Rfam assigns this 244-nucleotide RNA sequence from Streptomyces sp. F001 to the family "Streptomyces sRNA 4677". Lineage of the source: Bacteria > Actinomycetes > Kitasatosporales > Streptomycetaceae > Streptomyces. The base pairs follow the family's consensus structure. It scores 231 bits against the family's covariance model. Rfam describes the family as follows. Located in the intergenic region between anti-sigma factor SCO4677 gene and a putative regulatory protein gene SCO4676. scr4677 expression requires the SCO4677 activity and scr4677 sRNA itself seem to affect the levels of the SCO4676-associated transcripts.
RNA sequence: UGCGUCGGUGCCAGGGGCGGUCUUUCCUAAGGACCACGACGGUGAAAGAACCUCACCAAGCCCCACCCCUCCCGCCCGCGGCGCCCGCUCACCCGUGCGAGUGAACAUCACCAACUCGGCUGGAUUCGCGGCACCUUGCCUGCCCUACGCUCGGCGCAACACAACCGCAGACAUGCAACGGCCCUCGCCGGGACGGCAAUCCCAGUGCGAGGGCCUGACCACCAAGGAAGGCGCAAUCUUCCCG
Numbered sequence: 001u002g003c004g005u006c007g008g009u010g011c012c013a014g015g016g017g018c019g020g021u022c023u024u025u026c027c028u029a030a031g032g033a034c035c036a037c038g039a040c041g042g043u044g045a046a047a048g049a050a051c052c053u054c055a056c057c058a059a060g061c062c063c064c065a066c067c068c069c070u071c072c073c074g075c076c077c078g079c080g081g082c083g084c085c086c087g088c089u090c091a092c093c094c095g096u097g098c099g100a101g102u103g104a105a106c107a108u109c110a111c112c113a114a115c116u117c118g119g120c121u122g123g124a125u126u127c128g129c130g131g132c133a134c135c136u137u138g139c140c141u142g143c144c145c146u147a148c149g150c151u152c153g154g155c156g157c158a159a160c161a162c163a164a165c166c167g168c169a170g171a172c173a174u175g176c177a178a179c180g181g182c183c184c185u186c187g188c189c190g191g192g193a194c195g196g197c198a199a200u201c202c203c204a205g206u207g208c209g210a211g212g213g214c215c216u217g218a219c220c221a222c223c224a225a226g227g228a229a230g231g232c233g234c235a236a237u238c239u240u241c242c243c244g
Stems, first nucleotide, its partner, number of pairs: 007223004016076004089104004094099001119155005180215005186209003190203004226242005